This 76-nucleotide sequence from Mediterraneibacter torques belongs to the Rfam family "Fluoride riboswitch aptamer (crcB RNA motif)". The base pairs follow the family's consensus structure, which is taken from published work. A search with the family's covariance model found it, with a score of 46 bits. Taxonomically the source falls in Mediterraneibacter torques (Bacteria, Bacillota, Lachnospirales, Lachnospiraceae).
RNA sequence: UUUGACUAUGGGAAUGAAGUUCUCCCUUAGUGAUGAAACUAAAACCGCUGAUUUGGCUGAUGACUUCUGCAUUUUG
Numbered sequence: 001u002u003u004g005a006c007u008a009u010g011g012g013a014a015u016g017a018a019g020u021u022c023u024c025c026c027u028u029a030g031u032g033a034u035g036a037a038a039c040u041a042a043a044a045c046c047g048c049u050g051a052u053u054u055g056g057c058u059g060a061u062g063a064c065u066u067c068u069g070c071a072u073u074u075u076g
Stems, first nucleotide, its partner, number of pairs: 010026004016067006047057003